[Rfam]
RNA sequence: ACAUGAGGCUCACUUAGAGCCUCGCUAACCUGGGGAGGUUAGGUAUCCAUCCGGGUAGCGGUAGCUCGGCCCCUACUGGAGAAACGGCAUCCAGAGACCGGGUCAUCAGCCCCGGUCGGAACCGUUUC
Numbered sequence: 001a002c003a004u005g006a007g008g009c010u011c012a013c014u015u016a017g018a019g020c021c022u023c024g025c026u027a028a029c030c031u032g033g034g035g036a037g038g039u040u041a042g043g044u045a046u047c048c049a050u051c052c053g054g055g056u057a058g059c060g061g062u063a064g065c066u067c068g069g070c071c072c073c074u075a076c077u078g079g080a081g082a083a084a085c086g087g088c089a090u091c092c093a094g095a096g097a098c099c100g101g102g103u104c105a106u107c108a109g110c111c112c113c114g115g116u117c118g119g120a121a122c123c124g125u126u127u128c
Stems, first nucleotide, its partner, number of pairs: 005023007025042007046080004053074001054072002058070002061067001081128007096117007
Overview
Shown here is a 128-nucleotide RNA, a member of the family "LAGLIDADG-2 RNA". It is one of the family's seed sequences. Rfam classes the family as a small RNA.